[Rfam]
RNA sequence: GAUCUCCAUCGUUUCUUACGGUAAAGAGAAACCUGCCGUACUGGGCCACGACGAAGCGGCUUACGCUAAGAACCGUCGCGCUGUACUGGUUUACUAAGAGAAUUGCAUGAGCAGUAACUUCAGACAUCACCUGUUG
Numbered sequence: 001g002a003u004c005u006c007c008a009u010c011g012u013u014u015c016u017u018a019c020g021g022u023a024a025a026g027a028g029a030a031a032c033c034u035g036c037c038g039u040a041c042u043g044g045g046c047c048a049c050g051a052c053g054a055a056g057c058g059g060c061u062u063a064c065g066c067u068a069a070g071a072a073c074c075g076u077c078g079c080g081c082u083g084u085a086c087u088g089g090u091u092u093a094c095u096a097a098g099a100g101a102a103u104u105g106c107a108u109g110a111g112c113a114g115u116a117a118c119u120u121c122a123g124a125c126a127u128c129a130c131c132u133g134u135u136g
Stems, first nucleotide, its partner, number of pairs: 001041001004038001011032007051135001054132001056130001059127001062124001065121001072115002075112001076110003080106002083103002086100002

This 136-nucleotide RNA from Salmonella enterica belongs to the Rfam family "CpoB/ybgF ICR thermometer". The base pairs follow the family's consensus structure. The family's RNA type in Rfam is RNA thermoregulator. Imprinting control region from upstream of cpoB/ybgF (tol/pal system protein). On this family, see Righetti et al., Proc Natl Acad Sci U S A 2016: "Temperature-responsive in vitro RNA structurome of Yersinia pseudotuberculosis". Rfam links the family to the GO terms regulation of translation and response to temperature stimulus.